[Rfam]
RNA sequence: ACAAGGGAGAGGAGGUGGUCCUGGAAGUGAAUAUUCUUCGGACUCUUGAGGUGGUUGCGCGCUAACCGUCGCGCAUCGAACGGACGGCAGCUGAGCCGGUCCGCCCCCGGUCUCCCCGCUCAGGCGGGGACGACGGCAGGCGAAUCCCGACGCAGCCACCGGUGCCCGCGGGAGUCGUGCCCUCGUCCAGCACGACGGACGGAUCUGAUCCGUCAGCCCGCGGGCAUUCCCCU
Numbered sequence: 001a002c003a004a005g006g007g008a009g010a011g012g013a014g015g016u017g018g019u020c021c022u023g024g025a026a027g028u029g030a031a032u033a034u035u036c037u038u039c040g041g042a043c044u045c046u047u048g049a050g051g052u053g054g055u056u057g058c059g060c061g062c063u064a065a066c067c068g069u070c071g072c073g074c075a076u077c078g079a080a081c082g083g084a085c086g087g088c089a090g091c092u093g094a095g096c097c098g099g100u101c102c103g104c105c106c107c108c109g110g111u112c113u114c115c116c117c118g119c120u121c122a123g124g125c126g127g128g129g130a131c132g133a134c135g136g137c138a139g140g141c142g143a144a145u146c147c148c149g150a151c152g153c154a155g156c157c158a159c160c161g162g163u164g165c166c167c168g169c170g171g172g173a174g175u176c177g178u179g180c181c182c183u184c185g186u187c188c189a190g191c192a193c194g195a196c197g198g199a200c201g202g203a204u205c206u207g208a209u210c211c212g213u214c215a216g217c218c219c220g221c222g223g224g225c226a227u228u229c230c231c232c233u
Base pairs, nucleotide, nucleotide: 015058016057017056018055019054060142061141062140063139066136068134069133070132071131162227163226164225165224166223167222168221169220170219171218172217176194177193178192179191180190
RNA: Actinobacteria sRNA Ms_IGR-5